[Rfam]
RNA sequence: UGUUGGCUUUAGGGGUAUUCUGUAAAGAAUUGAGAUAGUCCCUUUGAACCUGAUCUGGCUAACACCGGCGUAGGGAAAAGUUAGAAUUACAUU
Number, nucleotide and partner (000 for none) at each position: 001u000002g000003u000004u000005g000006g081007c080008u079009u078010u077011a043012g042013g041014g040015g000016u037017a030018u029019u028020c027021u026022g000023u000024a000025a000026a021027g020028a019029a018030u017031u000032g000033a000034g000035a000036u000037a016038g000039u000040c014041c013042c012043u011044u000045u000046g000047a000048a000049c074050c073051u072052g071053a000054u000055c068056u067057g066058g065059c000060u000061a000062a000063c000064a000065c058066c057067g056068g055069c000070g000071u052072a051073g050074g049075g000076a000077a010078a009079a008080g007081u006082u000083a000084g000085a000086a000087u000088u000089a000090c000091a000092u000093u000
RNA: TPP riboswitch aptamer (THI element)